[Rfam]
RNA sequence: UAUAGUUUAUGGGGGUGCUCUAAUAGAGCUGAGAAGAGAUAUUCCUCUAACCCUUUGAACCUGAUCCAGGUAAAACUGGCGUAGGGAAGUAAUCUACAUGAAUU
Numbered sequence: 001u002a003u004a005g006u007u008u009a010u011g012g013g014g015g016u017g018c019u020c021u022a023a024u025a026g027a028g029c030u031g032a033g034a035a036g037a038g039a040u041a042u043u044c045c046u047c048u049a050a051c052c053c054u055u056u057g058a059a060c061c062u063g064a065u066c067c068a069g070g071u072a073a074a075a076c077u078g079g080c081g082u083a084g085g086g087a088a089g090u091a092a093u094c095u096a097c098a099u100g101a102a103u104u
Base pairs, nucleotide, nucleotide: 006092007091010088011054012053013052014051017029018028019027020026021025036047037046038045060085061084062083063082066079067078068077069076